[Rfam]
tRNA: an 88-nucleotide sequence from Thiomonas sp. X19. NCBI's taxonomy places the organism under Bacteria, Pseudomonadota, Betaproteobacteria, Burkholderiales, Thiomonas. The match comes from Rfam's covariance-model search (57 bits). Rfam 15.1 lists 5,335,975 matches to the family in 14,413 species.

RNA sequence: GGAGACGUGACCGAGUGGCCGAAGGUGCUCCCCUGCUAAGGGAGUAUGUGCCAAAAGCGCAUCAAGGGUUCGAAUCCCUUCGUCUCCG
Dot-bracket structure: (((((((..(((...........))).(((((.......)))))...................(((((.......)))))))))))).